[Rfam]
RNA sequence: GAACGUAGAGGACGGAACGGGCAGCCGUCGCCCAUUGUUAGGAGAUGUGGGAGUGUCACCCCACCUAUUUC
Numbered sequence: 001g002a003a004c005g006u007a008g009a010g011g012a013c014g015g016a017a018c019g020g021g022c023a024g025c026c027g028u029c030g031c032c033c034a035u036u037g038u039u040a041g042g043a044g045a046u047g048u049g050g051g052a053g054u055g056u057c058a059c060c061c062c063a064c065c066u067a068u069u070u071c
Stems, first nucleotide, its partner, number of pairs: 001071003005068004011029005020057004031042001047064005
About this RNA:
A member of the RNA family "skipping-rope RNA", 71 nucleotides long.